The family of this 80-nucleotide RNA from Medicago truncatula is "MIR5269 microRNA precursor family". Its family is annotated with miRNA-mediated post-transcriptional gene silencing and RISC complex in the Gene Ontology. The family's consensus secondary structure was predicted with RNAalifold. The source organism's lineage runs through Eukaryota, Streptophytina, Magnoliopsida, Pentapetalae and Medicago.

[Rfam]
RNA sequence: UUGGCUUAAAUCAUGGUGGGUCUCACACUUUGGAAAUGGAUAUCACUUAAAGUGGUGGGUCAUACAUUGAUUUCAUCUAA
Numbered sequence: 001u002u003g004g005c006u007u008a009a010a011u012c013a014u015g016g017u018g019g020g021u022c023u024c025a026c027a028c029u030u031u032g033g034a035a036a037u038g039g040a041u042a043u044c045a046c047u048u049a050a051a052g053u054g055g056u057g058g059g060u061c062a063u064a065c066a067u068u069g070a071u072u073u074c075a076u077c078u079a080a
Base pairs, nucleotide, nucleotide: 001080002079003078004077006075008073009072010071011070012069013068016065017064018063023058024057025056026054027053028052029051030050031049032048